[Rfam]
RNA: c-di-GMP-I-GGC riboswitch aptamer
Organism: Syntrophobacter fumaroxidans
RNA sequence: UUAGAAAAAGCCAAAUCCAUCGCAAGGUGGAGACGGAAAGCCGCGGGUCUCCUUCCCAUUCGAGACGGCCGGGUUGCCUGAU
Number, nucleotide and partner (000 for none) at each position: 001u000002u000003a079004g078005a000006a000007a000008a000009a000010g000011c036012c035013a000014a000015a000016u031017c030018c029019a028020u027021c026022g000023c000024a000025a000026g021027g020028u019029g018030g017031a016032g000033a000034c068035g012036g011037a000038a000039a075040g074041c073042c072043g000044c071045g070046g069047g066048u065049c064050u000051c000052c000053u000054u000055c000056c000057c000058a000059u000060u000061c000062g000063a000064g049065a048066c047067g000068g034069c046070c045071g044072g042073g041074u040075u039076g000077c000078c004079u003080g000081a000082u000